[Rfam]
RNA sequence: AAAUUCUUUGUGCUGAGUUCCCGAACAGGGAAGCGGGGGAACCAUUAUAGGGGUGAGUUCAGAUGAAUUCUGAUAAGGCCGCUCUGAGCCUGAACCCGACAGCUAACUUCGUAAGCACAGCAGAGGAUGAGA
Numbered sequence: 001a002a003a004u005u006c007u008u009u010g011u012g013c014u015g016a017g018u019u020c021c022c023g024a025a026c027a028g029g030g031a032a033g034c035g036g037g038g039g040a041a042c043c044a045u046u047a048u049a050g051g052g053g054u055g056a057g058u059u060c061a062g063a064u065g066a067a068u069u070c071u072g073a074u075a076a077g078g079c080c081g082c083u084c085u086g087a088g089c090c091u092g093a094a095c096c097c098g099a100c101a102g103c104u105a106a107c108u109u110c111g112u113a114a115g116c117a118c119a120g121c122a123g124a125g126g127a128u129g130a131g132a
Base pairs, nucleotide, nucleotide: 011117012116013115014114018032019031020030033112034111035110036109037108038107043050051097052096053095059073060072061071062070076091077090078089079088
This 132-nucleotide RNA from Alicyclobacillus sp. SO9 belongs to the Rfam family "c-di-AMP riboswitch aptamer (ydaO/yuaA leader)". It scores 88 bits against the family's covariance model. The base pairs follow the family's consensus structure.